Annotation
Shown here is a 197-nucleotide RNA from Eubacterium ventriosum, a member of the family "Group II catalytic intron D1-D4-5". Its family is annotated with Group II intron splicing in the Gene Ontology. From the family's description: Group II introns are found in rRNA, tRNA and mRNA of organelles in fungi, plants and protists, and also in mRNA in bacteria.
[Rfam]
RNA sequence: GAGAACUAAACACACGAUAUGUCGAAUGAUGGAGUAACGUCCUGAAAGGCAACCCUAAUCCUCCGACUUGCACCUAAGUUAGUAGAAACUAAAGUGUAAGAAGCUCGGUGAAGUCGGCAGAGAGAUACCGAAACAGAUUAGAUGUCGAAAGCAUUUCAGAGGUGAGAUGUGUAUCCUAUAUGCCGGGGGUCUAUAAA
Numbered sequence: 001g002a003g004a005a006c007u008a009a010a011c012a013c014a015c016g017a018u019a020u021g022u023c024g025a026a027u028g029a030u031g032g033a034g035u036a037a038c039g040u041c042c043u044g045a046a047a048g049g050c051a052a053c054c055c056u057a058a059u060c061c062u063c064c065g066a067c068u069u070g071c072a073c074c075u076a077a078g079u080u081a082g083u084a085g086a087a088a089c090u091a092a093a094g095u096g097u098a099a100g101a102a103g104c105u106c107g108g109u110g111a112a113g114u115c116g117g118c119a120g121a122g123a124g125a126u127a128c129c130g131a132a133a134c135a136g137a138u139u140a141g142a143u144g145u146c147g148a149a150a151g152c153a154u155u156u157c158a159g160a161g162g163u164g165a166g167a168u169g170u171g172u173a174u175c176c177u178a179u180a181u182g183c184c185g186g187g188g189g190u191c192u193a194u195a196a197a
Stems, first nucleotide, its partner, number of pairs: 018052001020051004031043002034040001053189004063108004067100007075092001077090002115185005124175005129147003135143001151170008